Shown here is a 54-nucleotide sequence, a member of the family "L17-Actino-Proteobacteria ribosomal protein leader".
RNA sequence: CCGACCGGCGCAUGCCGGUCGGCCCGACCCCGGUACCUGAUACGGCCGGGGCGG
Numbered sequence: 001c002c003g004a005c006c007g008g009c010g011c012a013u014g015c016c017g018g019u020c021g022g023c024c025c026g027a028c029c030c031c032g033g034u035a036c037c038u039g040a041u042a043c044g045g046c047c048g049g050g051g052c053g054g
Base pairs, nucleotide, nucleotide: 001022002021003020004019005018006017007016008015009014024054025053026052028051029050030049031048032047033046034045